[Rfam]
RNA sequence: CAAGCCUGCAAGGAUCAGAAGGUCUGAACAGGUCCCUCAGAUCCGCCGAAAGGUUGAACUGAGAUGAAAGGGUGGUUUUUAUGGAUGUCUUUUGUCCACCCGUCAAUGCCCUCCAUACCUCUCGCUGGCGAGAAAUUUGGAGAGGAAUCAAAAACUAGUCCUAGUU
Numbered sequence: 001c002a003a004g005c006c007u008g009c010a011a012g013g014a015u016c017a018g019a020a021g022g023u024c025u026g027a028a029c030a031g032g033u034c035c036c037u038c039a040g041a042u043c044c045g046c047c048g049a050a051a052g053g054u055u056g057a058a059c060u061g062a063g064a065u066g067a068a069a070g071g072g073u074g075g076u077u078u079u080u081a082u083g084g085a086u087g088u089c090u091u092u093u094g095u096c097c098a099c100c101c102g103u104c105a106a107u108g109c110c111c112u113c114c115a116u117a118c119c120u121c122u123c124g125c126u127g128g129c130g131a132g133a134a135a136u137u138u139g140g141a142g143a144g145g146a147a148u149c150a151a152a153a154a155c156u157a158g159u160c161c162u163a164g165u166u
Stems, first nucleotide, its partner, number of pairs: 007030002011025002014023003035066001036063005042057002047052001084160003087155002090153005109145002111142004120133005
RNA: Ascomycota telomerase RNA, nucleotides 944 to 1109